[Rfam]
RNA sequence: UCCAGCGGUAGUCAGCUGCCCGUUGCUGCUCAGUGCCUGUGAUAGUGUUAUGCUGCUGGGAGAGAAAUGGCGCUGCCGAGUUGCACCUGGCACCACCGGUGCUGUUCUAGUGCCGGAUGGUGUUGGGUUCUGGCAGCACUCUGCAUGCUUGAGAGUGGAGUAACUCCUCCUCGGUGGAGUUAAUCCUAGAUUGGAUGCAGACAAU
Numbered sequence: 001u002c003c004a005g006c007g008g009u010a011g012u013c014a015g016c017u018g019c020c021c022g023u024u025g026c027u028g029c030u031c032a033g034u035g036c037c038u039g040u041g042a043u044a045g046u047g048u049u050a051u052g053c054u055g056c057u058g059g060g061a062g063a064g065a066a067a068u069g070g071c072g073c074u075g076c077c078g079a080g081u082u083g084c085a086c087c088u089g090g091c092a093c094c095a096c097c098g099g100u101g102c103u104g105u106u107c108u109a110g111u112g113c114c115g116g117a118u119g120g121u122g123u124u125g126g127g128u129u130c131u132g133g134c135a136g137c138a139c140u141c142u143g144c145a146u147g148c149u150u151g152a153g154a155g156u157g158g159a160g161u162a163a164c165u166c167c168u169c170c171u172c173g174g175u176g177g178a179g180u181u182a183a184u185c186c187u188a189g190a191u192u193g194g195a196u197g198c199a200g201a202c203a204a205u
Base pairs, nucleotide, nucleotide: 001060002059003058004057005056006055007054008053009052011051012050015046016045017044018043020041021039022038025036026035070139072137073136074135075134076133077132078131085128086127087126088125093119096116097115098113100112101111102110103109141200142199143198144197145196146195148193157186158185159184161182162181163180164179165178166177167176
RNA: Small nucleolar RNA SNORA74